A member of the RNA family "Alphaproteobacterial ar14" from Rhizobium sp. Leaf306, 127 nucleotides long. The family's RNA type in Rfam is small RNA. The literature on the family includes a 2017 paper in Environ Microbiol by Robledo et al., "A conserved alpha-proteobacterial small RNA contributes to osmoadaptation and symbiotic efficiency of rhizobia on legume roots". Lineage of the source: Bacteria > Pseudomonadati > Alphaproteobacteria > Rhizobiaceae > Rhizobium. Pairs were carried over by alignment from the consensus structure.
RNA sequence: AGACACGCAGAACCCUCCCUCCUCCUCCCAGAGGUUUCUGCAGCAGAGCACCGGCACUCCUCCUCCCAGCCGUUGCUCUCGUCUUUUGAAGAGCCUGCCGCACCUCCUCCCGCGGCGGGCUCUUUUC
Numbered sequence: 001a002g003a004c005a006c007g008c009a010g011a012a013c014c015c016u017c018c019c020u021c022c023u024c025c026u027c028c029c030a031g032a033g034g035u036u037u038c039u040g041c042a043g044c045a046g047a048g049c050a051c052c053g054g055c056a057c058u059c060c061u062c063c064u065c066c067c068a069g070c071c072g073u074u075g076c077u078c079u080c081g082u083c084u085u086u087u088g089a090a091g092a093g094c095c096u097g098c099c100g101c102a103c104c105u106c107c108u109c110c111c112g113c114g115g116c117g118g119g120c121u122c123u124u125u126u127c
Stems, first nucleotide, its partner, number of pairs: 007041003011037002014034004046078005052072004091122011